[Rfam]
RNA sequence: ACAUUGCGAUGAGGUGAAAGGUUGCUGUUAUCAGGAAAUUUUCACUGAGAAUGUCCGGUUGCAAACUGGGCGACUU
Numbered sequence: 001a002c003a004u005u006g007c008g009a010u011g012a013g014g015u016g017a018a019a020g021g022u023u024g025c026u027g028u029u030a031u032c033a034g035g036a037a038a039u040u041u042u043c044a045c046u047g048a049g050a051a052u053g054u055c056c057g058g059u060u061g062c063a064a065a066c067u068g069g070g071c072g073a074c075u076u
Stems, first nucleotide, its partner, number of pairs: 014045003018042004025034003053074003058071003
The family of this 76-nucleotide sequence from Anaerosalibacter massiliensis is "S10-Clostridia ribosomal protein leader".
Taxonomically the source falls in Anaerosalibacter (Bacteria, Bacillota, Tissierellia, Sporanaerobacteraceae).
The match comes from Rfam's covariance-model search (36 bits).
For this family Rfam cites "Discovery of 20 novel ribosomal leader candidates in bacteria and archaea" (Eckert and Weinberg, BMC Microbiol, 2020).
By type it is a cis-regulatory leader.